[Rfam]
RNA sequence: UCUGCACAUGAUGAUAAAGAUAGACAGGGACAUCAGAUCUCAAACAGAGAAUGAUGACUUCGUCUAAUGGGAAUCUCUCUGAUGCAAU
Numbered sequence: 001u002c003u004g005c006a007c008a009u010g011a012u013g014a015u016a017a018a019g020a021u022a023g024a025c026a027g028g029g030a031c032a033u034c035a036g037a038u039c040u041c042a043a044a045c046a047g048a049g050a051a052u053g054a055u056g057a058c059u060u061c062g063u064c065u066a067a068u069g070g071g072a073a074u075c076u077c078u079c080u081g082a083u084g085c086a087a088u
Stems, first nucleotide, its partner, number of pairs: 003086004

About this RNA:
The record is an 88-nucleotide RNA sequence from Lupinus angustifolius, which matches "Small nucleolar RNA R44/J54/Z268 family" in Rfam. Gene Ontology terms of the family: RNA processing and nucleolus. Lineage of the source: Eukaryota > Tracheophyta > Magnoliopsida > Fabaceae > Lupinus. The family is grouped with related families in Rfam's "SNORD74 clan". Pairs were carried over by alignment from the consensus structure, which was predicted with PFOLD.